[Rfam]
RNA sequence: CACGGACCCGCUACGGCGGGUGGCUUCACCGAGCGCCUAUCCCUCGGCAACCA
Numbered sequence: 001c002a003c004g005g006a007c008c009c010g011c012u013a014c015g016g017c018g019g020g021u022g023g024c025u026u027c028a029c030c031g032a033g034c035g036c037c038u039a040u041c042c043c044u045c046g047g048c049a050a051c052c053a
Base pairs, nucleotide, nucleotide: 006021007020008019009018010017011016029047030046031045032044033043
The family of this 53-nucleotide RNA sequence from Agrobacterium albertimagni is "sul1 RNA". A search with the family's covariance model found it, with a score of 50 bits. Pairs were carried over by alignment from the consensus structure, which is taken from published work.